This 75-nucleotide RNA from Streptomyces rimosus belongs to the Rfam family "ASpks TB sRNA". The family's RNA type in Rfam is antisense RNA. Lineage of the source: Bacteria > Actinomycetota > Kitasatosporales > Streptomycetaceae > Streptomyces.
[Rfam]
RNA sequence: CUUCACCGAGCCGAGCAGCAGCGGCCGCUCCGGGUCGCGGUCCUGGCCGUACGCGGCCAGCAGCGCCUGCGCCUC
Numbered sequence: 001c002u003u004c005a006c007c008g009a010g011c012c013g014a015g016c017a018g019c020a021g022c023g024g025c026c027g028c029u030c031c032g033g034g035u036c037g038c039g040g041u042c043c044u045g046g047c048c049g050u051a052c053g054c055g056g057c058c059a060g061c062a063g064c065g066c067c068u069g070c071g072c073c074u075c
Base pairs, nucleotide, nucleotide: 015025016024031071032070038065039064043060044059045058047056048055049054